[Rfam]
RNA sequence: GUGCCCAUUUUAAGACUUGUUCUUUAAGUGGCCAACACAGGGGGGUAUAAUAAAGCUCUCUAAAACUCAAGGUAAAAAUGUUUUUACUUUGUAUCCUGACGGGAGCGACAAUG
Dot-bracket structure: .(((((.(((...(.((..........)..)....)..))).)))))........(((((.......((((((.(((....))).)))))).........)))))........

Rfam assigns this 113-nucleotide RNA from Eleutherodactylus coqui to the family "Small nucleolar RNA SNORA26". Lineage of the source: Eukaryota > Opisthokonta > Gnathostomata > Neobatrachia > Eleutherodactylus. Its family is annotated with nucleolus and RNA processing in the Gene Ontology. Rfam 15.1 lists 1,943 matches to the family in 640 species. Rfam's curators write: The snoRNA HBI-6 belong to the H/ACA family of snoRNAs, guiding the pseudouridylation of position U4522 if the 28S rRNA. HBI-6 is the human orthologue of mouse MBI-6 snoRNA. A reference for the family is Huttenhofer et al. (2001), "RNomics: an experimental approach that identifies 201 candidates for novel, small, non-messenger RNAs in mouse", EMBO J. The family's consensus secondary structure was predicted with RNAalifold.